[Rfam]
RNA sequence: UGGCGGGGACCCGCACAAGCGGUGGAGCAUGCUCUUUAAUUGGCUGAUAACCCAAGAACCUUACCAGGGCUUGACAUGCAUAAAGUAGUGAACCGAAAGGGGAACGACCGGUAUCCAGUCCGGAGUUUGCACAGGUGUUGCAUGGCUGUCGUCAGUUCGUACCGUGAGGCGUACCCUUAAGUGGGUUAACGAACGCAACCCCUACUGUCAGUUGUAUCACUCUGACGGAACUGCCUCGGUAACGAGGAGGAAGGUGGGGAUGACGUCAAGUCAGUAUUGCUCUUACGCUCUGGGCUAGAAGCAUGCUACAAUGGGGUCGACAGCGCGAAGCGAAGAGGCGACUCGGAGCAAAUCGCUAAACGACCUCUCAGUUCGGAUUGGAGUCUGCAAUUCGACUCCAUGAAGUUGGAAUCGCUAGUAAUCGGCGGUCAGCUAUACGCCGGUGAAUACGUUCUCGGGUCUUGCACACACUGCCCGUCACGUCAGCAAAGCUGGGGCCACCCGAAGUCUCAUUUUGUAUGGGCUCACGGUGGAAUCAGUGAUGAGGAUGAAGUCGAAACAAGGUAGCCGUAGGGGAAUCUGCGGCUGGAUCACCUCCUU
Numbered sequence: 001u002g003g004c005g006g007g008g009a010c011c012c013g014c015a016c017a018a019g020c021g022g023u024g025g026a027g028c029a030u031g032c033u034c035u036u037u038a039a040u041u042g043g044c045u046g047a048u049a050a051c052c053c054a055a056g057a058a059c060c061u062u063a064c065c066a067g068g069g070c071u072u073g074a075c076a077u078g079c080a081u082a083a084a085g086u087a088g089u090g091a092a093c094c095g096a097a098a099g100g101g102g103a104a105c106g107a108c109c110g111g112u113a114u115c116c117a118g119u120c121c122g123g124a125g126u127u128u129g130c131a132c133a134g135g136u137g138u139u140g141c142a143u144g145g146c147u148g149u150c151g152u153c154a155g156u157u158c159g160u161a162c163c164g165u166g167a168g169g170c171g172u173a174c175c176c177u178u179a180a181g182u183g184g185g186u187u188a189a190c191g192a193a194c195g196c197a198a199c200c201c202c203u204a205c206u207g208u209c210a211g212u213u214g215u216a217u218c219a220c221u222c223u224g225a226c227g228g229a230a231c232u233g234c235c236u237c238g239g240u241a242a243c244g245a246g247g248a249g250g251a252a253g254g255u256g257g258g259g260a261u262g263a264c265g266u267c268a269a270g271u272c273a274g275u276a277u278u279g280c281u282c283u284u285a286c287g288c289u290c291u292g293g294g295c296u297a298g299a300a301g302c303a304u305g306c307u308a309c310a311a312u313g314g315g316g317u318c319g320a321c322a323g324c325g326c327g328a329a330g331c332g333a334a335g336a337g338g339c340g341a342c343u344c345g346g347a348g349c350a351a352a353u354c355g356c357u358a359a360a361c362g363a364c365c366u367c368u369c370a371g372u373u374c375g376g377a378u379u380g381g382a383g384u385c386u387g388c389a390a391u392u393c394g395a396c397u398c399c400a401u402g403a404a405g406u407u408g409g410a411a412u413c414g415c416u417a418g419u420a421a422u423c424g425g426c427g428g429u430c431a432g433c434u435a436u437a438c439g440c441c442g443g444u445g446a447a448u449a450c451g452u453u454c455u456c457g458g459g460u461c462u463u464g465c466a467c468a469c470a471c472u473g474c475c476c477g478u479c480a481c482g483u484c485a486g487c488a489a490a491g492c493u494g495g496g497g498c499c500a501c502c503c504g505a506a507g508u509c510u511c512a513u514u515u516u517g518u519a520u521g522g523g524c525u526c527a528c529g530g531u532g533g534a535a536u537c538a539g540u541g542a543u544g545a546g547g548a549u550g551a552a553g554u555c556g557a558a559a560c561a562a563g564g565u566a567g568c569c570g571u572a573g574g575g576g577a578a579u580c581u582g583c584g585g586c587u588g589g590a591u592c593a594c595c596u597c598c599u600u
Base pairs, nucleotide, nucleotide: 001468002467003465004464005463007462008461009460010459011458012457013456015452016451019415020414021413022412023411024309026307027306028305029304030303031302032301033300034298035297040055041054042053043052064293065292066291067290068289069288070287077131078130079129080128082126088105089104093100094099108123109122110121134282135281137280138279140277143276144275145271146270147269148267150265151264155194156193157192158191159190160189162169163168173186174185175184176183200259201258202257203256205228206227207226208225209224210223211222231250232249234247235246236245237244238243313367314366315365316364317363318362319361325356326355327354330349331348335344336343337342374405379400380399381398382397383396384395385394421444422443423442424441425440426439427438471563473560476556477555481550482549483548484547487544488543491540492539493538494537495536498533499532500531501530502529507525509523510522511521512520514519565588566587567586568585569584570583571582572581573580574579

Background
The family of this 600-nucleotide part of an RNA from an uncultured candidate division WWE3 bacterium is "Bacterial small subunit ribosomal RNA". Rfam's curators put it in the seed alignment. A reference for the family is Yusupov et al. (2001), "Crystal structure of the ribosome at 5.5 A resolution", Science. The family is grouped with related families in Rfam's "SSU clan".